Lysine riboswitch aptamer: a 191-nucleotide RNA from Kroppenstedtia pulmonis. Rfam links the family to the GO term lysine biosynthetic process. Taxonomically the source falls in Kroppenstedtia (Bacteria, Bacillota, Bacilli, Caryophanales).
RNA sequence: CGAUGGGGUAGAGGUUGCGACUUUGAUCAGUAAACUUCGGGAAGGCAGAGAGACCCUGAUGAAUGUAGUUGAAAGGCAAAGUCGCCGAAGUCCGAACCGUUUUCUCUCAAACGGGGGGCUGGGCUUGUAUCCGAACAGGAACAAGACUGUCACGUGACCAUUCCGGGUUCUCGUGGUGUGCUAUCUUCACG
Numbered sequence: 001c002g003a004u005g006g007g008g009u010a011g012a013g014g015u016u017g018c019g020a021c022u023u024u025g026a027u028c029a030g031u032a033a034a035c036u037u038c039g040g041g042a043a044g045g046c047a048g049a050g051a052g053a054c055c056c057u058g059a060u061g062a063a064u065g066u067a068g069u070u071g072a073a074a075g076g077c078a079a080a081g082u083c084g085c086c087g088a089a090g091u092c093c094g095a096a097c098c099g100u101u102u103u104c105u106c107u108c109a110a111a112c113g114g115g116g117g118g119c120u121g122g123g124c125u126u127g128u129a130u131c132c133g134a135a136c137a138g139g140a141a142c143a144a145g146a147c148u149g150u151c152a153c154g155u156g157a158c159c160a161u162u163c164c165g166g167g168u169u170c171u172c173g174u175g176g177u178g179u180g181c182u183a184u185c186u187u188c189a190c191g
Base pairs, nucleotide, nucleotide: 006186007185008184009183010182011181017085018084019083020082021081022080023079024078025077033070034069035068036067038065039064089120090119091118092117093116097114098113099112100111101110102109121148122147124145125144126143127142128141130139131138150176151175152174153173154172156170
Dot-bracket structure: .....((((((.....(((((((((.......((((.((........................)).))))......)))))))))...(((((...((((((......)))))).)))))((.(((((.((......)).))))).)).(((((.(.............).)))))....)))))).....